[Rfam]
RNA sequence: CUCGCAAGACGACUUGCGAGAUGUAAGCAAUCGGGACGGCCCG
Numbered sequence: 001c002u003c004g005c006a007a008g009a010c011g012a013c014u015u016g017c018g019a020g021a022u023g024u025a026a027g028c029a030a031u032c033g034g035g036a037c038g039g040c041c042c043g
Stems, first nucleotide, its partner, number of pairs: 001020008032043004
RNA: Guanidine-II riboswitch aptamer (mini-ykkC)